[Rfam]
RNA sequence: GUGAGGCGCGCCUAGGGUUCCGUCAUCGCGGCACAGAUACUCACGUACUGAUGCGGCGGUGGGUCUGGACCGAGAGGCGAGGCGGAGGGCUGCGAACCCUGCGUUCCACGGCGGGAUAAAAACCCGGGAGGC
Numbered sequence: 001g002u003g004a005g006g007c008g009c010g011c012c013u014a015g016g017g018u019u020c021c022g023u024c025a026u027c028g029c030g031g032c033a034c035a036g037a038u039a040c041u042c043a044c045g046u047a048c049u050g051a052u053g054c055g056g057c058g059g060u061g062g063g064u065c066u067g068g069a070c071c072g073a074g075a076g077g078c079g080a081g082g083c084g085g086a087g088g089g090c091u092g093c094g095a096a097c098c099c100u101g102c103g104u105u106c107c108a109c110g111g112c113g114g115g116a117u118a119a120a121a122a123c124c125c126g127g128g129a130g131g132c
Stems, first nucleotide, its partner, number of pairs: 007081001009079004015071002020068002022065001023062006082104003086100004107127001109130001113125003
Dot-bracket structure: ......(.((((..((...(((((((((............................))))))..).)).))....)))).)(((.((((.......)))).)))..(.[...(((.......))).)..]..